[Rfam]
A member of the RNA family "Small nucleolar RNA SNORA77" from Cavia porcellus, 129 nucleotides long. For this family Rfam cites "A computational screen for mammalian pseudouridylation guide H/ACA RNAs" (Schattner et al., RNA, 2006). It is one of the family's seed sequences. The family's RNA type in Rfam is H/ACA-box small nucleolar RNA. Gene Ontology terms of the family: RNA processing and nucleolus. The organism belongs to Cavia, within Eukaryota. ACA63 (SNORA77) is a member of the H/ACA class of snoRNAs that guide the sites of modification of uridines to pseudouridines. This snoRNA was identified by computational screening and its expression in mouse experimentally verified by Northern blot and primer extension analysis. ACA63 is proposed to guide the pseudouridylation of 18S rRNA U814.
RNA sequence: GCAGACUCACUCUGCACUUGGCUGUAGCCUCCAGGCAGGUGCUUUUUCUGUCUGCCAGAGAACCAUUCCAGGGAGCUGUGACAGCCUUGACCUGUCAGGGGGGCAGUGCAGCUUCUUGGGGACAUAGAA
Numbered sequence: 001g002c003a004g005a006c007u008c009a010c011u012c013u014g015c016a017c018u019u020g021g022c023u024g025u026a027g028c029c030u031c032c033a034g035g036c037a038g039g040u041g042c043u044u045u046u047u048c049u050g051u052c053u054g055c056c057a058g059a060g061a062a063c064c065a066u067u068c069c070a071g072g073g074a075g076c077u078g079u080g081a082c083a084g085c086c087u088u089g090a091c092c093u094g095u096c097a098g099g100g101g102g103g104c105a106g107u108g109c110a111g112c113u114u115c116u117u118g119g120g121g122a123c124a125u126a127g128a129a
Base pairs, nucleotide, nucleotide: 001055002054003053004052005051006050014042015041016040017039018038019037020036022034023033024032067120068119069118070117071116072115073114075112076111077110078109079108080107084104085103086102087101